[Rfam]
RNA sequence: UCGACUGUACUCGAACAGGAUCACUUAUGUAGUGAAUUCCUUUCGUUCACAAGAGUACUCUUGACAAAACCCUAAACCGUGAUGAGGAGUUGUAUACCCCACCCUAAUGGAGGUGUAGUCAGUACAGUCAUGUACUCGACUUCGAUGAUCCAUCCCGUAUGGGAGUGGGGUGUGGGUAUUGCUGAGCGGUU
Numbered sequence: 001u002c003g004a005c006u007g008u009a010c011u012c013g014a015a016c017a018g019g020a021u022c023a024c025u026u027a028u029g030u031a032g033u034g035a036a037u038u039c040c041u042u043u044c045g046u047u048c049a050c051a052a053g054a055g056u057a058c059u060c061u062u063g064a065c066a067a068a069a070c071c072c073u074a075a076a077c078c079g080u081g082a083u084g085a086g087g088a089g090u091u092g093u094a095u096a097c098c099c100c101a102c103c104c105u106a107a108u109g110g111a112g113g114u115g116u117a118g119u120c121a122g123u124a125c126a127g128u129c130a131u132g133u134a135c136u137c138g139a140c141u142u143c144g145a146u147g148a149u150c151c152a153u154c155c156c157g158u159a160u161g162g163g164a165g166u167g168g169g170g171u172g173u174g175g176g177u178a179u180u181g182c183u184g185a186g187c188g189g190u191u
Base pairs, nucleotide, nucleotide: 003039006035008034009033010032011031017028019026020025043067045065046064047063049061051059076190077189078188079187080186095178096177097176098175099174100172101171102170103169104168105167108152109151110150111149118140119139120138123134153164154163155162156161

Rfam assigns this 191-nucleotide sequence from Perkinsus marinus to the family "ACEA small nucleolar RNA U3". Rfam classes the family as a C/D-box small nucleolar RNA. Lineage of the source: Eukaryota > Sar > Perkinsida > Perkinsidae > Perkinsus marinus. On this family, see Zwieb, Nucleic Acids Res 1997: "The uRNA database". Gene Ontology terms of the family: nucleolus and RNA processing. The family is grouped with related families in Rfam's "U3 clan".